[Rfam]
The record is a 140-nucleotide RNA from Acipenser ruthenus, which matches "U4 spliceosomal RNA" in Rfam. The match comes from Rfam's covariance-model search (117 bits). For this family Rfam cites "Mechanism of 5' splice site transfer for human spliceosome activation" (Charenton et al., Science, 2019). Rfam links the family to the GO terms spliceosomal tri-snRNP complex assembly and U4 snRNP. It is annotated as a spliceosomal small nuclear RNA. The base pairs follow the family's consensus structure, which is taken from published work. The family has 177 seed sequences and 32,178 matches in Rfam 15.1.

RNA sequence: AGCUUUGCGCAGUGGCAGUAUCAUAGCCCAUGAGGUUUGUCCGAGGCGUGAUUAUUGCUAGUUGAAAACUUUAACCAAUACCCCGCCGUGGUGACUUGAAAUAUAGUCGCCGCUGGCAAUUUUUGACAGUCUCACAGAGU
Numbered sequence: 001a002g003c004u005u006u007g008c009g010c011a012g013u014g015g016c017a018g019u020a021u022c023a024u025a026g027c028c029c030a031u032g033a034g035g036u037u038u039g040u041c042c043g044a045g046g047c048g049u050g051a052u053u054a055u056u057g058c059u060a061g062u063u064g065a066a067a068a069c070u071u072u073a074a075c076c077a078a079u080a081c082c083c084c085g086c087c088g089u090g091g092u093g094a095c096u097u098g099a100a101a102u103a104u105a106g107u108c109g110c111c112g113c114u115g116g117c118a119a120u121u122u123u124u125g126a127c128a129g130u131c132u133c134a135c136a137g138a139g140u
Base pairs, nucleotide, nucleotide: 020052021051022050023049024048026047027046028045034042035041085117086116087115088113089112090111091110092109093108094107095106096105131139132138133137